[Rfam]
RNA sequence: GUUUGUGUGUGAUGAGGAAAAUAUCACACAGUUAUCCCUAUCUGAUGCAUUUUUGUGUUGAUUACAUGUGAUCUGACACAAAC
Numbered sequence: 001g002u003u004u005g006u007g008u009g010u011g012a013u014g015a016g017g018a019a020a021a022u023a024u025c026a027c028a029c030a031g032u033u034a035u036c037c038c039u040a041u042c043u044g045a046u047g048c049a050u051u052u053u054u055g056u057g058u059u060g061a062u063u064a065c066a067u068g069u070g071a072u073c074u075g076a077c078a079c080a081a082a083c
Base pairs, nucleotide, nucleotide: 001083002082003081004080005079006078007077
Notes: Rfam assigns this 83-nucleotide RNA from Manihot esculenta to the family "Small nucleolar RNA R38". Taxonomically the source falls in Manihot (Eukaryota, Mesangiospermae, rosids, Manihoteae). The family's consensus secondary structure was predicted with PFOLD. Gene Ontology terms of the family: nucleolus and RNA processing. From the family's description: snoR38 is a C/D box small nucleolar RNA conserved across yeast, human, Arabidopsis and rice. It is encoded in the intron of elongation factor-1 gamma in both pombe and cerevisiae. snoR38 guides the methylation of 2'-O-ribose sites in 28S rRNA. It scores 59 bits against the family's covariance model. The family's RNA type in Rfam is C/D-box small nucleolar RNA.